[Rfam]
Shown here is an 83-nucleotide RNA sequence from Pseudoroseicyclus aestuarii, a member of the family "ZMP/ZTP riboswitch aptamer (pfl RNA motif)".
The match comes from Rfam's covariance-model search (61 bits).
Pairs were carried over by alignment from the consensus structure, which is taken from published work.
Taxonomically the source falls in Pseudoroseicyclus (Bacteria, Pseudomonadati, Pseudomonadota, Paracoccaceae).
RNA sequence: CUGCCCAUGCGCGACUGGCGAUCACAAGGUGGGCCACCACCGGGAAGCGCAUGCGAAACGAGCCGCGCGCCUGGGCCCCCGGG
Numbered sequence: 001c002u003g004c005c006c007a008u009g010c011g012c013g014a015c016u017g018g019c020g021a022u023c024a025c026a027a028g029g030u031g032g033g034c035c036a037c038c039a040c041c042g043g044g045a046a047g048c049g050c051a052u053g054c055g056a057a058a059c060g061a062g063c064c065g066c067g068c069g070c071c072u073g074g075g076c077c078c079c080c081g082g083g
Base pairs, nucleotide, nucleotide: 004055006053007052008051009050010049011048012047015044016043017071018070019069020068029040030039031038032037060078062076063075064074